[Rfam]
Rfam assigns this 199-nucleotide sequence from Zingiber officinale to the family "U2 spliceosomal RNA".
The match comes from Rfam's covariance-model search (99 bits).
The source organism's lineage runs through Eukaryota, Streptophytina, Euphyllophyta, Zingiberaceae and Zingiber.
Rfam's curators write: U2 is a small nuclear RNA (snRNA) component of the spliceosome (involved in pre-mRNA splicing). Complementary binding between U2 snRNA (in an area lying towards the 5' end but 3' to hairpin I) and the branchpoint sequence (BPS) of the intron results the bulging out of an unpaired adenosine, on the BPS, which initiates a nucleophilic attack at the intronic 5' splice site, thus starting the first of two transesterification reactions that mediate splicing.
On this family, see Zwieb, Nucleic Acids Res 1997: "The uRNA database".
The family's consensus secondary structure is taken from published work.

RNA sequence: AUAUCUUUCUCAGUCUUUUGGCUAAAAUCAAGUAUAGUAUAUGUUCUUAUUAAUUAAAUAUUUGAUAAGUGAGCCAUCGGUCUAUUACGAUGUUAAAUUAAUUUUUUAUUGGGAGAGGGUUCACCAUGUAGUUUGCUACUGGGACCCUCGUGUGGGUUGCCCUUGGGUUACAUUAUAGUAUGGAUUUGAUGCACUAACC
Numbered sequence: 001a002u003a004u005c006u007u008u009c010u011c012a013g014u015c016u017u018u019u020g021g022c023u024a025a026a027a028u029c030a031a032g033u034a035u036a037g038u039a040u041a042u043g044u045u046c047u048u049a050u051u052a053a054u055u056a057a058a059u060a061u062u063u064g065a066u067a068a069g070u071g072a073g074c075c076a077u078c079g080g081u082c083u084a085u086u087a088c089g090a091u092g093u094u095a096a097a098u099u100a101a102u103u104u105u106u107u108a109u110u111g112g113g114a115g116a117g118g119g120u121u122c123a124c125c126a127u128g129u130a131g132u133u134u135g136c137u138a139c140u141g142g143g144a145c146c147c148u149c150g151u152g153u154g155g156g157u158u159g160c161c162c163u164u165g166g167g168u169u170a171c172a173u174u175a176u177a178g179u180a181u182g183g184a185u186u187u188g189a190u191g192c193a194c195u196a197a198c199c
Base pairs, nucleotide, nucleotide: 008027010025012023013022014021015020048067049066050065051064052063053062069085070084071083073081074080075079115149116148117147118146119145120144121143122142128139129138130137131136154192156190157189158188159187161183162182164180165179